[Rfam]
Nucleotides: 066
Stems, first nucleotide, its partner, number of pairs: 001056008011022004028047005041066001
Number, partner (000 for none) and nucleotide at each position: 001056c002055g003054c004053a005052g006051g007050g008049a009000u010000a011022g012021g013020c014019u015000g016000g017000c018000c019014a020013g021012c022011c023000g024000a025000c026000a027000a028047g029046c030045c031044g032043g033000g034000g035000u036000g037000c038000a039000c040000c041066u042000c043032c044031c045030g046029g047028u048000u049008u050007c051006c052005c053004u054003g055002c056001g057000g058000u059000c060000c061000u062000c063000a064000g065000g066041g
Rfam assigns this 66-nucleotide RNA sequence from Manganibacter manganicus to the family "int-alpA RNA".
The match comes from Rfam's covariance-model search (36 bits).
Rfam 15.1 lists 577 matches to the family in 491 species.
About the family: Acidobacteria (1 example), Planctomycetes (1 example), Proteobacteria.